[Rfam]
RNA sequence: AUCAGAAAGCUAGGGGUAAUCCGGCUACUCGGAGAUCGGGACCGGAGGAUGGUUUGAGGUCGGGACGUCUGGUGCUGAGUGGCCCAUGUUGACUGGACGUCCACACUAAGCCCGGUAUUAAUAUGGAUCCCCUGGAGGAGUCCGGGGGAUGCAGGUUAACUAAGGAGAGGCGAACCGGGCCAGGGGGGAAACCCAGCAGCCAAAAGUCUCCGUAUCGGGCAGUAGUGGGAUAGCGGCCGGGAGUGAGUGCUCAGUAACAGCCUGACCAAUAAAAUCAGACCCGUUCCUUU
Numbered sequence: 001a002u003c004a005g006a007a008a009g010c011u012a013g014g015g016g017u018a019a020u021c022c023g024g025c026u027a028c029u030c031g032g033a034g035a036u037c038g039g040g041a042c043c044g045g046a047g048g049a050u051g052g053u054u055u056g057a058g059g060u061c062g063g064g065a066c067g068u069c070u071g072g073u074g075c076u077g078a079g080u081g082g083c084c085c086a087u088g089u090u091g092a093c094u095g096g097a098c099g100u101c102c103a104c105a106c107u108a109a110g111c112c113c114g115g116u117a118u119u120a121a122u123a124u125g126g127a128u129c130c131c132c133u134g135g136a137g138g139a140g141u142c143c144g145g146g147g148g149a150u151g152c153a154g155g156u157u158a159a160c161u162a163a164g165g166a167g168a169g170g171c172g173a174a175c176c177g178g179g180c181c182a183g184g185g186g187g188g189a190a191a192c193c194c195a196g197c198a199g200c201c202a203a204a205a206g207u208c209u210c211c212g213u214a215u216c217g218g219g220c221a222g223u224a225g226u227g228g229g230a231u232a233g234c235g236g237c238c239g240g241g242a243g244u245g246a247g248u249g250c251u252c253a254g255u256a257a258c259a260g261c262c263u264g265a266c267c268a269a270u271a272a273a274a275u276c277a278g279a280c281c282c283g284u285u286c287c288u289u290u
Base pairs, nucleotide, nucleotide: 001036002035003034020033021032022031038288039287040286041285043283044282045281050277051276052275053274054273055272058267059266060265061264062263063262064261069260070259071258073256074255075254076253077252078251079250080249081248083247085245086244087243089241093240094239095238096237098235099234100233101229102228104227105226106225107224108223110220111219112218113217114216115215116214117213118212119158120157121156122155124153125152127150128149129148130147131146132145133144134143135142136141160164167210168209169208170207171206178201179200180199185194186193187192
About this RNA
Rfam assigns this 290-nucleotide RNA sequence from Arctia plantaginis to the family "Metazoan signal recognition particle RNA". The base pairs follow the family's consensus structure, which is taken from published work. Lineage of the source: Eukaryota > Arthropoda > Pterygota > Heteroneura > Arctia. By type it is a non-coding RNA gene. The signal recognition particle (SRP) is a universally conserved ribonucleoprotein.